Shown here is a 156-nucleotide sequence from Affinibrenneria salicis, a member of the family "sroC RNA". By type it is a small RNA. On this family, see Vogel et al., Nucleic Acids Res 2003: "RNomics in Escherichia coli detects new sRNA species and indicates parallel transcriptional output in bacteria".

[Rfam]
RNA sequence: ACUAACAAUGACAAUAAGAGCAGCCAGGUAGCUGCUCCCUUGAUUGUUGAUUACUGGCCGGACAGACACGCGCAGGGUGGUCGUUCCCCGCCCGGGCGCGACGGGCCGCUCAUCAAUCUUCAGGGUAGCCUGGCUACCCUUUUUUACGGAGUUUGU
Numbered sequence: 001a002c003u004a005a006c007a008a009u010g011a012c013a014a015u016a017a018g019a020g021c022a023g024c025c026a027g028g029u030a031g032c033u034g035c036u037c038c039c040u041u042g043a044u045u046g047u048u049g050a051u052u053a054c055u056g057g058c059c060g061g062a063c064a065g066a067c068a069c070g071c072g073c074a075g076g077g078u079g080g081u082c083g084u085u086c087c088c089c090g091c092c093c094g095g096g097c098g099c100g101a102c103g104g105g106c107c108g109c110u111c112a113u114c115a116a117u118c119u120u121c122a123g124g125g126u127a128g129c130c131u132g133g134c135u136a137c138c139c140u141u142u143u144u145u146a147c148g149g150a151g152u153u154u155g156u
Base pairs, nucleotide, nucleotide: 012155013154014153018037019036020035021034023032024031038124039123041122042121043117044116045115046114049111050110063100072097073096075093076092077091078090079089080088
NCBI's taxonomy places the organism under Bacteria, Pseudomonadota, Enterobacterales, Pectobacteriaceae, Affinibrenneria.
This family consists of a number of bacterial sroC RNA genes of around 160 bases in length. sroC is found in several Enterobacterial species. It base-pairs with GcvB. This interaction triggers the degradation of GcvB by RNase E, alleviating the GcvB-mediated mRNA repression of other amino acid-related transport and metabolic genes.
Pairs were carried over by alignment from the consensus structure, which was predicted with PFOLD.